[Rfam]
RNA: Guanidine-I riboswitch aptamer
RNA sequence: GGAAAUGAUUCCUAGGGUUCCGAUUUCUUCAGCUUCUUUGCUGGUGGAAUGUCUGGUCCGAGAGGAACACACUGAAGUGAUUCAGUGGCACGGAGGGACAAAAGCCCGGGAGAC
Numbered sequence: 001g002g003a004a005a006u007g008a009u010u011c012c013u014a015g016g017g018u019u020c021c022g023a024u025u026u027c028u029u030c031a032g033c034u035u036c037u038u039u040g041c042u043g044g045u046g047g048a049a050u051g052u053c054u055g056g057u058c059c060g061a062g063a064g065g066a067a068c069a070c071a072c073u074g075a076a077g078u079g080a081u082u083c084a085g086u087g088g089c090a091c092g093g094a095g096g097g098a099c100a101a102a103a104g105c106c107c108g109g110g111a112g113a114c
Base pairs, nucleotide, nucleotide: 009067010066011065012064015059016058020056021055022053023050024049025048026047027046070087071086072085073084074083075082076081089109091112095107096106097105